Notes
The record is a 72-nucleotide sequence from Sesamum indicum, which matches "Small nucleolar RNA Z105" in Rfam. For this family Rfam cites "The high diversity of snoRNAs in plants: identification and comparative study of 120 snoRNA genes from Oryza sativa" (Chen et al., Nucleic Acids Res, 2003). Gene Ontology terms of the family: RNA processing and nucleolus. NCBI's taxonomy places the organism under Eukaryota, Viridiplantae, Spermatophyta, Lamiales, Sesamum. Pairs were carried over by alignment from the consensus structure, which was predicted with CMfinder. The family has 11 seed sequences and 621 matches in Rfam 15.1.
RNA sequence: GGGGCAUAAUGAGGAAGCUAAUUGGUCUGAAUUUCUGGUGAUUGAGUUAUUAUAACCUCCUACUCAUUCUGA
Number, nucleotide and partner (000 for none) at each position: 001g000002g000003g000004g000005c000006a067007u066008a000009a064010u000011g000012a000013g000014g000015a000016a000017g000018c000019u000020a000021a000022u000023u000024g000025g000026u000027c000028u000029g048030a047031a000032u000033u044034u000035c000036u000037g000038g000039u000040g000041a000042u000043u000044g033045a000046g000047u030048u029049a000050u000051u000052a000053u000054a000055a000056c000057c000058u000059c000060c000061u000062a000063c000064u009065c000066a007067u006068u000069c000070u000071g000072a000